RNA sequence: AAGAGCUUCGAGCCAAUAAAGACUGAGAGGAUUGACUCAAAAAAA
Numbered sequence: 001a002a003g004a005g006c007u008u009c010g011a012g013c014c015a016a017u018a019a020a021g022a023c024u025g026a027g028a029g030g031a032u033u034g035a036c037u038c039a040a041a042a043a044a045a
Stems, first nucleotide, its partner, number of pairs: 007041002010038003014034004

Plastid-rpl16 group II-D1 intron: a 45-nucleotide sequence.
Plastid-rpl16 is a non-coding RNA (ncRNA) recognised in plastids. It was recognised in and intronic region of a ribosome rpl16 gene.